MIR7502 microRNA precursor family: a 135-nucleotide RNA sequence from Gossypium raimondii. Rfam 15.1 lists 74,505 matches to the family in 24 species. Lineage of the source: Eukaryota > Euphyllophyta > Mesangiospermae > Malvoideae > Gossypium. Rfam links the family to the GO terms miRNA-mediated post-transcriptional gene silencing and RISC complex. The match comes from Rfam's covariance-model search (83 bits). The base pairs follow the family's consensus structure, which was predicted with RNAalifold.
RNA sequence: CAUUAAAAAUUUCAUCAAUUUCUAUCGUUAAAACCUGGUGUGGCUGGUGGAAUAACCAGACAGUUACACGUGGCGUGCUUAUGCUGAUGUAGAUGGACCAGUUUUUAACAGUAAGAGUGGAUGAAAGUUUUAACA
Number, nucleotide and partner (000 for none) at each position: 001c000002a000003u133004u132005a131006a130007a129008a128009a000010u126011u125012u124013c123014a122015u121016c120017a000018a118019u117020u116021u115022c000023u113024a112025u111026c000027g000028u108029u107030a106031a105032a104033a103034c000035c000036u000037g000038g000039u000040g000041u000042g000043g000044c000045u000046g000047g000048u000049g000050g000051a000052a000053u000054a000055a000056c000057c000058a000059g000060a000061c000062a000063g000064u000065u000066a000067c000068a000069c000070g000071u000072g000073g000074c000075g000076u000077g000078c000079u000080u000081a000082u000083g000084c000085u000086g000087a000088u000089g000090u000091a000092g000093a000094u000095g000096g000097a000098c000099c000100a000101g000102u000103u033104u032105u031106u030107a029108a028109c000110a000111g025112u024113a023114a000115g021116a020117g019118u018119g000120g016121a015122u014123g013124a012125a011126a010127g000128u008129u007130u006131u005132a004133a003134c000135a000